[Rfam]
Rfam assigns this 142-nucleotide RNA from Halobacteroides halobius to the family "Lysine riboswitch aptamer". Lineage of the source: Bacteria > Bacillati > Clostridia > Halobacteroidaceae > Halobacteroides halobius. A reference for the family is Mandal et al. (2003), "Riboswitches Control Fundamental Biochemical Pathways in Bacillus subtilis and Other Bacteria", Cell.

RNA sequence: UAAUAAGGUAGAGGAGCAGUUAUCAAAAGUACUUAGCUAAGGAAAGGGUUAACUGCCGAAACAACAAAUUAAAAUAUUUGUUGUUGGGUUUAUACUUAACAGGUAUAAAACUGUUAAAAAAGCACAGUUAGCUACAUGGAUA
Numbered sequence: 001u002a003a004u005a006a007g008g009u010a011g012a013g014g015a016g017c018a019g020u021u022a023u024c025a026a027a028a029g030u031a032c033u034u035a036g037c038u039a040a041g042g043a044a045a046g047g048g049u050u051a052a053c054u055g056c057c058g059a060a061a062c063a064a065c066a067a068a069u070u071a072a073a074a075u076a077u078u079u080g081u082u083g084u085u086g087g088g089u090u091u092a093u094a095c096u097u098a099a100c101a102g103g104u105a106u107a108a109a110a111c112u113g114u115u116a117a118a119a120a121a122g123c124a125c126a127g128u129u130a131g132c133u134a135c136a137u138g139g140a141u142a
Base pairs, nucleotide, nucleotide: 006137008135009134010133011132016056017055018054019053020052021051022050024048032041033040034039060085061084062083063082064081065080066079067078068077069076086112087111089109090108091107092106093105094104095103096102114127115126